Background: This 88-nucleotide RNA sequence from Python bivittatus belongs to the Rfam family "mir-132 microRNA precursor family". Rfam links the family to the GO terms RISC complex and miRNA-mediated post-transcriptional gene silencing. A search with the family's covariance model found it, with a score of 70 bits. The family's consensus secondary structure was predicted with RNAalifold. The source organism's lineage runs through Eukaryota, Craniata, Sarcopterygii, Unidentata and Python.
[Rfam]
RNA sequence: GUUCGUCGGGACCUUGGCUCUAGACUGCUUACUGCUACAGGCAAUGAGAGACACAGUAACAGUCUACAGUCAUGGCUACUGAAGUCUG
Numbered sequence: 001g002u003u004c005g006u007c008g009g010g011a012c013c014u015u016g017g018c019u020c021u022a023g024a025c026u027g028c029u030u031a032c033u034g035c036u037a038c039a040g041g042c043a044a045u046g047a048g049a050g051a052c053a054c055a056g057u058a059a060c061a062g063u064c065u066a067c068a069g070u071c072a073u074g075g076c077u078a079c080u081g082a083a084g085u086c087u088g
Stems, first nucleotide, its partner, number of pairs: 012075002015072004023064005029059005